[Rfam]
RNA sequence: UACCGAGGUUUUCCUCAGUAGUUAACUGCAGCCGGUUUCUUCAGAAUUCGGCAGUUAACUGCCGAGAGGUAU
Numbered sequence: 001u002a003c004c005g006a007g008g009u010u011u012u013c014c015u016c017a018g019u020a021g022u023u024a025a026c027u028g029c030a031g032c033c034g035g036u037u038u039c040u041u042c043a044g045a046a047u048u049c050g051g052c053a054g055u056u057a058a059c060u061g062c063c064g065a066g067a068g069g070u071a072u
Stems, first nucleotide, its partner, number of pairs: 012068001015065002018062012
A member of the RNA family "MIR2629 microRNA precursor family" from Medicago truncatula, 72 nucleotides long. Gene Ontology terms of the family: RISC complex and miRNA-mediated post-transcriptional gene silencing. A search with the family's covariance model found it, with a score of 65 bits.